[Rfam]
Bacterial RNase P class A: a 439-nucleotide RNA from Rhodococcus jostii.
Its family is annotated with tRNA processing, ribonuclease P activity and dimeric ribonuclease P complex in the Gene Ontology.
Rfam classes the family as a ribozyme.
The sequence is in the family's curated seed alignment.
Nucleotides: 439
Base pairs, nucleotide, nucleotide: 001435002434003433004432005431006430007429008428009427011424012385013384014383015382016381017380018379020061021060022059023058025056026055027054028053066422067421068420070419071418072417073416074415075253076252077251078250082321083320084319085318087249088248089247090246091245092106093105094104095103096102107121108119109118110117111116122244123243127242128241129238130237131236144183145182146179147178148177149176150175151174152173153172154171155170156169157168158167159166160165191209192208193207194206195205196204211233212231213230214229215228216227217226218225219224257342258341259340260339261333263331264330265329266328313325314324315323316322349369350368351367352366353365354363355362356361
Number, partner (000 for none) and nucleotide at each position: 001435c002434g003433a004432g005431u006430u007429g008428g009427c010000c011424g012385g013384g014383c015382g016381a017380c018379c019000g020061c021060g022059g023058c024000a025056c026055a027054g028053g029000g030000a031000a032000c033000c034000a035000g036000c037000a038000c039000u040000u041000c042000a043000g044000u045000g046000c047000a048000c049000a050000g051000g052000c053028c054027c055026u056025g057000a058023g059022u060021c061020g062000a063000g064000g065000a066422a067421a068420g069000u070419c071418c072417g073416g074415a075253c076252u077251c078250c079000a080000c081000a082321g083320a084319g085318c086000a087249g088248g089247g090246c091245g092106g093105u094104u095103g096102u097000u098000a099000a100000c101000g102096g103095c104094a105093a106092c107121c108119c109118g110117a111116g112000g113000u114000g115000a116111c117110u118109c119108g120000c121107g122244g123243g124000a125000c126000a127242g128241u129238g130237c131236c132000a133000c134000a135000g136000a137000a138000a139000a140000c141000a142000g143000a144183c145182c146179g147178c148177c149176g150175a151174u152173g153172c154171c155170a156169c157168a158167u159166c160165c161000u162000c163000c164000g165160g166159g167158g168157u169156g170155u171154g172153g173152c174151g175150u176149c177148g178147g179146u180000c181000a182145g183144g184000g185000u186000g187000a188000a189000a190000c191209g192208g193207u194206g195205c196204g197000g198000u199000a200000a201000g202000a203000g204196c205195g206194c207193a208192c209191c210000a211233g212231c213230a214229c215228c216227c217226c218225g219224g220000g221000u222000g223000a224219c225218c226217g227216g228215g229214g230213u231212g232000g233211c234000u235000a236131g237130g238129u239000a240000a241128a242127c243123c244122c245091c246090g247089c248088c249087c250078g251077g252076a253075g254000c255000a256000a257342g258341g259340u260339u261333g262000a263331a264330g265329g266328c267000c268000g269000c270000a271000c272000c273000g274000g275000u276000u277000c278000c279000u280000c281000c282000g283000g284000g285000a286000u287000c288000c289000c290000g291000g292000u293000g294000c295000g296000g297000c298000u299000g300000c301000g302000c303000a304000g305000g306000u307000g308000u309000u310000c311000g312000a313325g314324g315323g316322c317000u318085g319084c320083u321082c322316g323315c324314c325313c326000g327000a328266g329265c330264c331263u332000g333261c334000g335000g336000g337000u338000g339260a340259a341258c342257c343000g344000c345000u346000c347000g348000a349369g350368g351367u352366a353365c354363c355362c356361g357000g358000c359000g360000a361356c362355g363354g364000u365353g366352u367351g368350c369349c370000c371000a372000g373000a374000u375000g376000g377000a378000u379018g380017g381016u382015c383014g384013c385012c386000a387000c388000c389000c390000g391000g392000c393000g394000c395000u396000u397000c398000g399000g400000c401000g402000c403000c404000c405000g406000g407000g408000g409000a410000c411000a412000g413000g414000a415074u416073c417072c418071g419070g420068c421067u422066u423000a424011c425000a426000c427009g428008c429007c430006a431005a432004c433003u434002c435001g436000u437000u438000c439000g